[Rfam]
RNA sequence: UACAGAUUUCAGCUCUUAGUAUUUGUCCAGUAGGUUUCCCGCUGUGCAGGAAGUCUCA
Numbered sequence: 001u002a003c004a005g006a007u008u009u010c011a012g013c014u015c016u017u018a019g020u021a022u023u024u025g026u027c028c029a030g031u032a033g034g035u036u037u038c039c040c041g042c043u044g045u046g047c048a049g050g051a052a053g054u055c056u057c058a
Base pairs, nucleotide, nucleotide: 033055034054035053036052037051038050039049041047042046
The record is a 58-nucleotide RNA sequence from Dromas ardeola, which matches "U7 small nuclear RNA" in Rfam. The organism belongs to Dromas, within Eukaryota.